[Rfam]
Source information
Shown here is a 207-nucleotide RNA sequence from Paraburkholderia phytofirmans, a member of the family "Burkholderia sRNA Bp1_Cand738_SIPHT".
RNA sequence: AAAAACCAGCGUCAGUUGGCGCUGGCGAGGACAUCAAUAAGACCGUUAGAUACCGUGCAGGGACUCGGUAAGCGGUGACGCGUUGCGUCUGAUGGGACCGGGGGCAGUGGUAAAAAGGUUCACGCCCUGCAACCAAUGUGGACGGAUUCUAUGCAGGGUUUUAUAGAUCGUCAACACUAUAGAUAGGCAAAUGUAUAACUAAUUGUA
Numbered sequence: 001a002a003a004a005a006c007c008a009g010c011g012u013c014a015g016u017u018g019g020c021g022c023u024g025g026c027g028a029g030g031a032c033a034u035c036a037a038u039a040a041g042a043c044c045g046u047u048a049g050a051u052a053c054c055g056u057g058c059a060g061g062g063a064c065u066c067g068g069u070a071a072g073c074g075g076u077g078a079c080g081c082g083u084u085g086c087g088u089c090u091g092a093u094g095g096g097a098c099c100g101g102g103g104g105c106a107g108u109g110g111u112a113a114a115a116a117g118g119u120u121c122a123c124g125c126c127c128u129g130c131a132a133c134c135a136a137u138g139u140g141g142a143c144g145g146a147u148u149c150u151a152u153g154c155a156g157g158g159u160u161u162u163a164u165a166g167a168u169c170g171u172c173a174a175c176a177c178u179a180u181a182g183a184u185a186g187g188c189a190a191a192u193g194u195a196u197a198a199c200u201a202a203u204u205g206u207a
Stems, first nucleotide, its partner, number of pairs: 006025007043110005051070005077089005137176003142171004148167004
Rfam classes the family as a small RNA. It is one of the family's seed sequences. Lineage of the source: Bacteria > Pseudomonadota > Burkholderiales > Burkholderiaceae > Paraburkholderia phytofirmans. On this family, see Khoo et al., BMC Genomics 2012: "Computational discovery and RT-PCR validation of novel Burkholderia conserved and Burkholderia pseudomallei unique sRNAs".